A member of the RNA family "Small nucleolar RNA MBII-202" from Nestor notabilis, 81 nucleotides long. The family's consensus secondary structure was predicted with PFOLD. On this family, see Huttenhofer et al., EMBO J 2001: "RNomics: an experimental approach that identifies 201 candidates for novel, small, non-messenger RNAs in mouse". Gene Ontology terms of the family: RNA processing and nucleolus. Taxonomically the source falls in Nestor (Eukaryota, Opisthokonta, Craniata, Teleostomi). The family's RNA type in Rfam is C/D-box small nucleolar RNA.
RNA sequence: GAUGAGACAUCUCCGGAAUCGCUGUACAACAUUGAUGAUUCCCUUGAACCCUUUUAUGUCUGAUGACUGUAGCUGUUACAU
Numbered sequence: 001g002a003u004g005a006g007a008c009a010u011c012u013c014c015g016g017a018a019u020c021g022c023u024g025u026a027c028a029a030c031a032u033u034g035a036u037g038a039u040u041c042c043c044u045u046g047a048a049c050c051c052u053u054u055u056a057u058g059u060c061u062g063a064u065g066a067c068u069g070u071a072g073c074u075g076u077u078a079c080a081u
Base pairs, nucleotide, nucleotide: 002081003080004079006077